[Rfam]
RNA sequence: UGAGCGACUGUAAACAUCCUCGACUGGAAGCUGGGAGGCCAAAUGGGCUUUCAGUCGGAUGUUUGCAGCUGCUGA
Number, nucleotide and partner (000 for none) at each position: 001u000002g000003a073004g072005c071006g070007a000008c068009u067010g066011u065012a064013a063014a062015c061016a060017u059018c058019c057020u000021c000022g000023a055024c054025u053026g052027g051028a050029a049030g048031c047032u046033g000034g000035g000036a000037g000038g000039c000040c000041a000042a000043a000044u000045g000046g032047g031048c030049u029050u028051u027052c026053a025054g024055u023056c000057g019058g018059a017060u016061g015062u014063u013064u012065g011066c010067a009068g008069c000070u006071g005072c004073u003074g000075a000

Rfam assigns this 75-nucleotide sequence from Heterocephalus glaber to the family "mir-30 microRNA precursor family".
Rfam links the family to the GO terms gene silencing by miRNA and RISC complex.
A search with the family's covariance model found it, with a score of 74 bits.
The base pairs follow the family's consensus structure, which was predicted with PFOLD.
On this family, see Lagos-Quintana et al., Science 2001: "Identification of novel genes coding for small expressed RNAs".
The family has 175 seed sequences and 3,879 matches in Rfam 15.1.
The source organism's lineage runs through Eukaryota, Eumetazoa, Teleostomi, Hystricomorpha and Heterocephalus.